[Rfam]
Rfam assigns this 75-nucleotide sequence from Niveispirillum lacus to the family "Makes More Granules Regulator RNA (mmgR)". From the family's description: SuhB later renamed mmgR (makes more granules regulator) was a putative non-coding RNA found multiple times in the Agrobacterium tumefaciens genome and related alpha-proteobacteria. Other non-coding RNAs uncovered in the same analysis include: speF, ybhL, metA, and serC.Several studies inSinorhizobium meliloti showed that suhB element is indeed a non-coding RNA:firstly it was detected on Northern blot and called Sm8RNA, secondly in an RNAseq study referred to as SmelC689.The mutant phenotype's (strain lacking the small RNA) cytoplasm contains higher content of polyhydroxybutyrate (PBH)storage granules than wild type strain. The sRNA is required to limit the PBH intracellular accumulation when the nitrogen-fixing Sinorhizobium meliloti is under condition of surplus carbon in relation to nitrogen. It has been renamed to mmgR. Further study confirmed that mmgR fine-tunes the regulation of PBH storage.Northern blot confirmed the expression of the sRNA in other rhizobia species.

Nucleotides: 075
Stems, first nucleotide, its partner, number of pairs: 008020002011017001038060009
Number, partner (000 for none) and nucleotide at each position: 001000u002000c003000g004000u005000a006000a007000c008020g009019c010000a011017c012000u013000u014000c015000u016000u017011g018000g019009g020008c021000g022000u023000u024000u025000c026000c027000u028000c029000c030000c031000u032000a033000a034000a035000c036000u037000c038060a039059g040058g041057c042056c043055g044054u045053g046052g047000c048000u049000a050000u051000g052046c053045c054044a055043c056042g057041g058040c059039c060038u061000u062000u063000u064000u065000u066000u067000c068000u069000g070000c071000c072000c073000a074000c075000g